[Rfam]
RNA sequence: GUUGGUUAUGGGGAUAUGAAACCCAUAACCGUGGGUGGGAAAAUAGUUGGGUCCCUGUGUGCCAUUGCGGGAGUGUUAACCAUUGCUUUACCAGUGCCAGUGAUUGUCUCCAAU
Numbered sequence: 001g002u003u004g005g006u007u008a009u010g011g012g013g014a015u016a017u018g019a020a021a022c023c024c025a026u027a028a029c030c031g032u033g034g035g036u037g038g039g040a041a042a043a044u045a046g047u048u049g050g051g052u053c054c055c056u057g058u059g060u061g062c063c064a065u066u067g068c069g070g071g072a073g074u075g076u077u078a079a080c081c082a083u084u085g086c087u088u089u090a091c092c093a094g095u096g097c098c099a100g101u102g103a104u105u106g107u108c109u110c111c112a113a114u
Base pairs, nucleotide, nucleotide: 001114002113004111005110008107009106010105011104014101015100018097020095037077038076040074049063050062

Overview:
A member of the RNA family "Potassium channel RNA editing signal" from Baryphthengus martii, 114 nucleotides long. It scores 98 bits against the family's covariance model. The family's RNA type in Rfam is cis-regulatory element.